[Rfam]
RNA sequence: CGUUUCGAGGAGCGUUGCGACGGCUGACAGCCGCCAGGCUCGAAACGCUUCGAUCGGCGGUCCGUUUUGCGCGUUCAACGCGUGCGGUCGUCGCCACAACGGCGCUCACGUCUU
Numbered sequence: 001c002g003u004u005u006c007g008a009g010g011a012g013c014g015u016u017g018c019g020a021c022g023g024c025u026g027a028c029a030g031c032c033g034c035c036a037g038g039c040u041c042g043a044a045a046c047g048c049u050u051c052g053a054u055c056g057g058c059g060g061u062c063c064g065u066u067u068u069g070c071g072c073g074u075u076c077a078a079c080g081c082g083u084g085c086g087g088u089c090g091u092c093g094c095c096a097c098a099a100c101g102g103c104g105c106u107c108a109c110g111u112c113u114u
Stems, first nucleotide, its partner, number of pairs: 002046007021033005
A member of the RNA family "SAH (S-adenosyl-L-homocysteine) riboswitch aptamer" from Mycetohabitans endofungorum, 114 nucleotides long. Rfam links the family to the GO terms S-adenosylhomocysteine metabolic process and regulation of gene expression.